Description
The family of this 75-nucleotide RNA sequence from Actinocrinis puniceicyclus is "ASpks TB sRNA". A search with the family's covariance model found it, with a score of 67 bits.
[Rfam]
RNA sequence: CUUCAGCGAUCCGAGCCACAGCGGCCGCCCCGGAUCGCGCCCGGGGCCGUAGGCGGCGAUCAGCGCCUCGGCCUC
Numbered sequence: 001c002u003u004c005a006g007c008g009a010u011c012c013g014a015g016c017c018a019c020a021g022c023g024g025c026c027g028c029c030c031c032g033g034a035u036c037g038c039g040c041c042c043g044g045g046g047c048c049g050u051a052g053g054c055g056g057c058g059a060u061c062a063g064c065g066c067c068u069c070g071g072c073c074u075c
Stems, first nucleotide, its partner, number of pairs: 015025003031071001033069001038065002043060001047056003
Dot-bracket structure: ..............(((.....))).....(.(....((...(...(((....)))...)...))...).)....